Small nucleolar RNA snR34: a 200-nucleotide RNA from Lachancea lanzarotensis. Rfam classes the family as an H/ACA-box small nucleolar RNA. Its Rfam clan is "SNORA65 clan". Pairs were carried over by alignment from the consensus structure, which was predicted with WAR. A search with the family's covariance model found it, with a score of 122 bits. Its family is annotated with RNA processing and nucleolus in the Gene Ontology. Taxonomically the source falls in Lachancea (Eukaryota, Fungi, Saccharomycotina, Saccharomycetales).
RNA sequence: GAAUCAAAAAUGCACGGAAACGAUGCCACAGUUAGCUUAGUCUGUCUUCUAACAGCUGCUAAUUGCCAAUAUUCCUUUUCUUGAAUUUGGAAUAUGAGUUUCCCAGAACAAUUUAUAAUAUGACUGGAUUUUAGGAAGUUCGCGGUUGGUGAGUCCCUCAGGGGAUGAUAGACCGGGAAUGUCGAAGAAAGGCUACAUUU
Numbered sequence: 001g002a003a004u005c006a007a008a009a010a011u012g013c014a015c016g017g018a019a020a021c022g023a024u025g026c027c028a029c030a031g032u033u034a035g036c037u038u039a040g041u042c043u044g045u046c047u048u049c050u051a052a053c054a055g056c057u058g059c060u061a062a063u064u065g066c067c068a069a070u071a072u073u074c075c076u077u078u079u080c081u082u083g084a085a086u087u088u089g090g091a092a093u094a095u096g097a098g099u100u101u102c103c104c105a106g107a108a109c110a111a112u113u114u115a116u117a118a119u120a121u122g123a124c125u126g127g128a129u130u131u132u133a134g135g136a137a138g139u140u141c142g143c144g145g146u147u148g149g150u151g152a153g154u155c156c157c158u159c160a161g162g163g164g165a166u167g168a169u170a171g172a173c174c175g176g177g178a179a180u181g182u183c184g185a186a187g188a189a190a191g192g193c194u195a196c197a198u199u200u
Base pairs, nucleotide, nucleotide: 016075017074018073019072030064031063032062033061034060035059036058042055043054044053045052112191113190114189119188138180139179140178141177143175145173146172147171151169153166154165155164156163157162